RNA sequence: AGAGUUGGCCAGACAGUCGCUAUGUGAAAAACAUAGAGGAAAGUCCGGGCUCCGCAGGGCAAAGUGCCAGAUAACGCCUGGGAAGUGUGAGCUUACGGAAAGUGCAACAGAAAGCAAACCGCCGAAGUCACAAUCUUGAUCUUUUAGAUUAAGAUAUUAGCCGAGAGAUUGGACUUUUUGAGUUCAAAACCGAAGACUAAAACUACUCAACGUAGUUGAAUUUUAGGCAAGGCAUCGAGGCGAGGAGUAGUCGGAGUGUACAUAAAAGUACAUGACGAUUGCGAAUCGCCAAAGAUAACGAAGCAUAAAGUUCAAAUACGAAGAGUAGGACUGGUAAGGGUGAAAGGGUGCGGUAAGAGCGCACCGCGUAGGUGGCAACAUUCUACGGCACGGUAAACCCCACUUGGAGCAAGACCAAAUAGGAACCUAAUAAUGCUGCCCGCAUUGGGUUCGGGUAGGUCGCAUGAGUCAUAUGGCGACAUAUGGCCUAGAUUAAUGAUUGUCCAUGACAGAACCCGGCUUAUCGGCCAACUCUAUCU
Numbered sequence: 001a002g003a004g005u006u007g008g009c010c011a012g013a014c015a016g017u018c019g020c021u022a023u024g025u026g027a028a029a030a031a032c033a034u035a036g037a038g039g040a041a042a043g044u045c046c047g048g049g050c051u052c053c054g055c056a057g058g059g060c061a062a063a064g065u066g067c068c069a070g071a072u073a074a075c076g077c078c079u080g081g082g083a084a085g086u087g088u089g090a091g092c093u094u095a096c097g098g099a100a101a102g103u104g105c106a107a108c109a110g111a112a113a114g115c116a117a118a119c120c121g122c123c124g125a126a127g128u129c130a131c132a133a134u135c136u137u138g139a140u141c142u143u144u145u146a147g148a149u150u151a152a153g154a155u156a157u158u159a160g161c162c163g164a165g166a167g168a169u170u171g172g173a174c175u176u177u178u179u180g181a182g183u184u185c186a187a188a189a190c191c192g193a194a195g196a197c198u199a200a201a202a203c204u205a206c207u208c209a210a211c212g213u214a215g216u217u218g219a220a221u222u223u224u225a226g227g228c229a230a231g232g233c234a235u236c237g238a239g240g241c242g243a244g245g246a247g248u249a250g251u252c253g254g255a256g257u258g259u260a261c262a263u264a265a266a267a268g269u270a271c272a273u274g275a276c277g278a279u280u281g282c283g284a285a286u287c288g289c290c291a292a293a294g295a296u297a298a299c300g301a302a303g304c305a306u307a308a309a310g311u312u313c314a315a316a317u318a319c320g321a322a323g324a325g326u327a328g329g330a331c332u333g334g335u336a337a338g339g340g341u342g343a344a345a346g347g348g349u350g351c352g353g354u355a356a357g358a359g360c361g362c363a364c365c366g367c368g369u370a371g372g373u374g375g376c377a378a379c380a381u382u383c384u385a386c387g388g389c390a391c392g393g394u395a396a397a398c399c400c401c402a403c404u405u406g407g408a409g410c411a412a413g414a415c416c417a418a419a420u421a422g423g424a425a426c427c428u429a430a431u432a433a434u435g436c437u438g439c440c441c442g443c444a445u446u447g448g449g450u451u452c453g454g455g456u457a458g459g460u461c462g463c464a465u466g467a468g469u470c471a472u473a474u475g476g477c478g479a480c481a482u483a484u485g486g487c488c489u490a491g492a493u494u495a496a497u498g499a500u501u502g503u504c505c506a507u508g509a510c511a512g513a514a515c516c517c518g519g520c521u522u523a524u525c526g527g528c529c530a531a532c533u534c535u536a537u538c539u
Stems, first nucleotide, its partner, number of pairs: 001535010011524001012504007020036006041522003045519005050409004057441004062405005067081004082096001083094004097400002102398002104394002119339002121335003126332004347365006366389001367387005372381003413461004423452006432446005468487008